[Rfam]
RNA sequence: GGGUCGAGCCGUGACUGGCGCGCUGGGAUGGGGUCAACCAUCGGGGAGCGGCUCUUCGUGACCACACAGUGCCGUGCGCCUGGGCCGUCCCG
Numbered sequence: 001g002g003g004u005c006g007a008g009c010c011g012u013g014a015c016u017g018g019c020g021c022g023c024u025g026g027g028a029u030g031g032g033g034u035c036a037a038c039c040a041u042c043g044g045g046g047a048g049c050g051g052c053u054c055u056u057c058g059u060g061a062c063c064a065c066a067c068a069g070u071g072c073c074g075u076g077c078g079c080c081u082g083g084g085c086c087g088u089c090c091c092g
Stems, first nucleotide, its partner, number of pairs: 003057001006054007015045002017080005028041004071085003
RNA: ZMP/ZTP riboswitch aptamer (pfl RNA motif)
Organism: Actinacidiphila bryophytorum